Shown here is a 555-nucleotide part of an RNA from Lachnospiraceae bacterium OF09-33XD, a member of the family "Bacterial small subunit ribosomal RNA". A search with the family's covariance model found it, with a score of 1574 bits. Clan: SSU clan. The family has 99 seed sequences and 42,628 matches in Rfam 15.1. Pairs were carried over by alignment from the consensus structure, which is taken from published work.

RNA sequence: UUUUUAGAGAGUUUGAUCCUGGCUCAGGAUGAACGCUGGCGGCGUGCUUAACACAUGCAAGUCGAGCGAAGCACCCGGACGGAUUUCUUCGGAUUGAAGGCCGGGCGACUGAGCGGCGGACGGGUGAGUAACGCGUGGGUAACCUGCCUCAUACAGGGGGAUAACAGUUAGAAAUGACUGCUAAUACCGCAUAAGCGCACGAAGGCGCAUGCCUUUGUGUGAAAAACUCCGGUGGUAUGAGAUGGACCCGCGUUAGAUUAGCCAGUUGGCAGGGUAACGGCCUACCAAAGCGACGAUCUAUAGCCGGCCUGAGAGGGCGACCGGCCACAUUGGGACUGAGACACGGCCCAAACUCCUACGGGAGGCAGCAGUGGGGAAUAUUGCACAAUGGGGGAAACCCUGAUGCAGCGACGCCGCGUGAGCGAAGAAGUAUUUCGGUAUGUAAAGCUCUAUCAGCAGGGAAGAAAAUGACGGUACCUGACUAAGAAGCCCCGGCUAACUACGUGCCAGCAGCCGCGGUAAUACGUAGGGGGCAAGCGUUAUCCGGAUUUACUG
Numbered sequence: 001u002u003u004u005u006a007g008a009g010a011g012u013u014u015g016a017u018c019c020u021g022g023c024u025c026a027g028g029a030u031g032a033a034c035g036c037u038g039g040c041g042g043c044g045u046g047c048u049u050a051a052c053a054c055a056u057g058c059a060a061g062u063c064g065a066g067c068g069a070a071g072c073a074c075c076c077g078g079a080c081g082g083a084u085u086u087c088u089u090c091g092g093a094u095u096g097a098a099g100g101c102c103g104g105g106c107g108a109c110u111g112a113g114c115g116g117c118g119g120a121c122g123g124g125u126g127a128g129u130a131a132c133g134c135g136u137g138g139g140u141a142a143c144c145u146g147c148c149u150c151a152u153a154c155a156g157g158g159g160g161a162u163a164a165c166a167g168u169u170a171g172a173a174a175u176g177a178c179u180g181c182u183a184a185u186a187c188c189g190c191a192u193a194a195g196c197g198c199a200c201g202a203a204g205g206c207g208c209a210u211g212c213c214u215u216u217g218u219g220u221g222a223a224a225a226a227c228u229c230c231g232g233u234g235g236u237a238u239g240a241g242a243u244g245g246a247c248c249c250g251c252g253u254u255a256g257a258u259u260a261g262c263c264a265g266u267u268g269g270c271a272g273g274g275u276a277a278c279g280g281c282c283u284a285c286c287a288a289a290g291c292g293a294c295g296a297u298c299u300a301u302a303g304c305c306g307g308c309c310u311g312a313g314a315g316g317g318c319g320a321c322c323g324g325c326c327a328c329a330u331u332g333g334g335a336c337u338g339a340g341a342c343a344c345g346g347c348c349c350a351a352a353c354u355c356c357u358a359c360g361g362g363a364g365g366c367a368g369c370a371g372u373g374g375g376g377a378a379u380a381u382u383g384c385a386c387a388a389u390g391g392g393g394g395a396a397a398c399c400c401u402g403a404u405g406c407a408g409c410g411a412c413g414c415c416g417c418g419u420g421a422g423c424g425a426a427g428a429a430g431u432a433u434u435u436c437g438g439u440a441u442g443u444a445a446a447g448c449u450c451u452a453u454c455a456g457c458a459g460g461g462a463a464g465a466a467a468a469u470g471a472c473g474g475u476a477c478c479u480g481a482c483u484a485a486g487a488a489g490c491c492c493c494g495g496c497u498a499a500c501u502a503c504g505u506g507c508c509a510g511c512a513g514c515c516g517c518g519g520u521a522a523u524a525c526g527u528a529g530g531g532g533g534c535a536a537g538c539g540u541u542a543u544c545c546g547g548a549u550u551u552a553c554u555g
Stems, first nucleotide, its partner, number of pairs: 009025005027545004032541006039417006045410002047375001052373003056370003061117003066114002069110001072107001074105005124328003133253008143245002148241007156190001158188002165180006196221007204213003226233002254300003261291002266288004271283003303325004307318004330351005353364004381407001383406003389402005420450004430441004454486001457480004464472001489534005500529005510517002